RNA sequence: UUUUGUGUAUGAUGAUAUCACAUAUGUAAACAGUUAUCCCUGUCUGAUUCAUCCUGAUGUGUACAUUUAAUCUGACACAUAC
Numbered sequence: 001u002u003u004u005g006u007g008u009a010u011g012a013u014g015a016u017a018u019c020a021c022a023u024a025u026g027u028a029a030a031c032a033g034u035u036a037u038c039c040c041u042g043u044c045u046g047a048u049u050c051a052u053c054c055u056g057a058u059g060u061g062u063a064c065a066u067u068u069a070a071u072c073u074g075a076c077a078c079a080u081a082c
Stems, first nucleotide, its partner, number of pairs: 002081001004079004

Description: A member of the RNA family "Small nucleolar RNA R38" from Centaurea solstitialis, 82 nucleotides long. snoR38 is a C/D box small nucleolar RNA conserved across yeast, human, Arabidopsis and rice. It is encoded in the intron of elongation factor-1 gamma in both pombe and cerevisiae. snoR38 guides the methylation of 2'-O-ribose sites in 28S rRNA. The literature on the family includes a 2003 paper in Nucleic Acids Res by Chen et al., "The high diversity of snoRNAs in plants: identification and comparative study of 120 snoRNA genes from Oryza sativa". The match comes from Rfam's covariance-model search (60 bits). Pairs were carried over by alignment from the consensus structure, which was predicted with PFOLD. Rfam links the family to the GO terms nucleolus and RNA processing.